[Rfam]
RNA sequence: GUGCAGGCCGUUCAGCGAGGCUGGGCCUGGCGUGGUCCUGUCCUUUCCUGUUGUGCCUGCUAGAGAGACUGGGGUGGUUUGAGGCCCUGCCGUGACUCUCCACGGCAAGGUUAUAGAAACCUCACACAAAU
Number, nucleotide and partner (000 for none) at each position: 001g000002u000003g060004c059005a058006g057007g056008c055009c000010g000011u000012u000013c000014a000015g000016c000017g000018a044019g043020g042021c000022u000023g038024g037025g036026c035027c034028u000029g000030g000031c000032g000033u000034g027035g026036u025037c024038c023039u000040g000041u000042c020043c019044u018045u000046u000047c000048c000049u000050g000051u000052u000053g000054u000055g008056c007057c006058u005059g004060c003061u000062a000063g000064a000065g000066a000067g000068a000069c000070u124071g123072g122073g121074g120075u000076g000077g000078u000079u000080u000081g000082a000083g000084g000085c110086c109087c000088u107089g106090c105091c000092g103093u102094g101095a000096c000097u000098c000099u000100c000101c094102a093103c092104g000105g090106c089107a088108a000109g086110g085111u000112u000113a000114u000115a000116g000117a000118a000119a000120c074121c073122u072123c071124a070125c000126a000127c000128a000129a000130a000131u000
RNA: Small nucleolar RNA SNORA9
Organism: Megalops atlanticus